[Rfam]
RNA sequence: UAUCUUUGCCGACUGAUGGAAAAACUGUCAAUACAUAAAAAUCAUUAAAAUUAAUAUUGGAAUG
Numbered sequence: 001u002a003u004c005u006u007u008g009c010c011g012a013c014u015g016a017u018g019g020a021a022a023a024a025c026u027g028u029c030a031a032u033a034c035a036u037a038a039a040a041a042u043c044a045u046u047a048a049a050a051u052u053a054a055u056a057u058u059g060g061a062a063u064g
Stems, first nucleotide, its partner, number of pairs: 014030006
The record is a 64-nucleotide sequence from Salegentibacter sp. Hel_I_6, which matches "S15-Flavobacteria ribosomal protein leader" in Rfam. The family's consensus secondary structure is taken from published work. Rfam's curators put it in the seed alignment. By type it is a cis-regulatory leader.